[Rfam]
Nucleotides: 076
Base pairs, nucleotide, nucleotide: 002017003016004015005014006013021036022035023034026031049075052072053071054070
Number, partner (000 for none) and nucleotide at each position: 001000a002017u003016g004015u005014a006013c007000u008000g009000c010000c011000g012000c013006g014005u015004a016003c017002a018000c019000u020000c021036c022035g023034g024000u025000u026031c027000c028000u029000g030000c031026g032000c033000u034023c035022c036021g037000g038000u039000c040000u041000c042000c043000c044000c045000c046000g047000g048000c049075u050000g051000a052072c053071g054070g055000c056000c057000g058000c059000u060000c061000g062000c063000g064000a065000c066000g067000g068000u069000u070054u071053u072052g073000a074000g075049a076000u

Rfam assigns this 76-nucleotide sequence from Sulfuricaulis limicola to the family "Xanthomonas sRNA sX9". NCBI's taxonomy places the organism under Bacteria, Pseudomonadota, Gammaproteobacteria, Acidiferrobacterales, Sulfuricaulis. Rfam classes the family as a small RNA. For this family Rfam cites "Genome-wide transcriptome analysis of the plant pathogen Xanthomonas identifies sRNAs with putative virulence functions" (Schmidtke et al., Nucleic Acids Res, 2011). The match comes from Rfam's covariance-model search (52 bits).